[Rfam]
RNA sequence: GCAUGUAUUCAUCUCAAUCCACAUGUGUUGAAGUGGAUUGGAGUGAAAUUAAACUAAAUUCCAUUCCAUUCCACUGCGACACAUGUGGAUUGAAGUAGAUACACAU
Numbered sequence: 001g002c003a004u005g006u007a008u009u010c011a012u013c014u015c016a017a018u019c020c021a022c023a024u025g026u027g028u029u030g031a032a033g034u035g036g037a038u039u040g041g042a043g044u045g046a047a048a049u050u051a052a053a054c055u056a057a058a059u060u061c062c063a064u065u066c067c068a069u070u071c072c073a074c075u076g077c078g079a080c081a082c083a084u085g086u087g088g089a090u091u092g093a094a095g096u097a098g099a100u101a102c103a104c105a106u
Stems, first nucleotide, its partner, number of pairs: 004103006011096002014093017033074005039068003043064003
Shown here is a 106-nucleotide RNA from Miscanthus lutarioriparius, a member of the family "MIR5565 microRNA precursor family". NCBI's taxonomy places the organism under Eukaryota, Embryophyta, Tracheophyta, Andropogonodae, Miscanthus. It scores 85 bits against the family's covariance model.